[Rfam]
RNA sequence: ACCCCCAAGUUACGUCUCAUCUUUGGUCGGAUACAACGUAAACUCGGGGGCCGUAAGCAGGCGCGGUGCCUGCGGGAAUUAUAUCUCAUGCGCGCUCAAGAUCAAUCCCCCCUGCCGACCUU
Numbered sequence: 001a002c003c004c005c006c007a008a009g010u011u012a013c014g015u016c017u018c019a020u021c022u023u024u025g026g027u028c029g030g031a032u033a034c035a036a037c038g039u040a041a042a043c044u045c046g047g048g049g050g051c052c053g054u055a056a057g058c059a060g061g062c063g064c065g066g067u068g069c070c071u072g073c074g075g076g077a078a079u080u081a082u083a084u085c086u087c088a089u090g091c092g093c094g095c096u097c098a099a100g101a102u103c104a105a106u107c108c109c110c111c112c113u114g115c116c117g118a119c120c121u122u
Stems, first nucleotide, its partner, number of pairs: 002050005008044002010041006019032001023118005029112002
The family of this 122-nucleotide RNA sequence from Sodalis glossinidius is "Pseudoknot of the regulatory region of the repBA gene". The organism belongs to Sodalis glossinidius, within Bacteria. A search with the family's covariance model found it, with a score of 51 bits. The family's consensus secondary structure is taken from published work. Its family is annotated with translation in the Gene Ontology. For this family Rfam cites "Analysis of elements involved in pseudoknot-dependent expression and regulation of the repA gene of an IncL/M plasmid" (Athanasopoulos et al., J Bacteriol, 1999).